[Rfam]
RNA sequence: GACGACCAGACGCAGUGGUCCCGAGCAGUUCAACAGUUCUCAUGCGCAAUUGUGAAAUGUUUCGGACCACUGCAUCUGGA
Numbered sequence: 001g002a003c004g005a006c007c008a009g010a011c012g013c014a015g016u017g018g019u020c021c022c023g024a025g026c027a028g029u030u031c032a033a034c035a036g037u038u039c040u041c042a043u044g045c046g047c048a049a050u051u052g053u054g055a056a057a058u059g060u061u062u063c064g065g066a067c068c069a070c071u072g073c074a075u076c077u078g079g080a
Stems, first nucleotide, its partner, number of pairs: 014071006021064001024061004029056004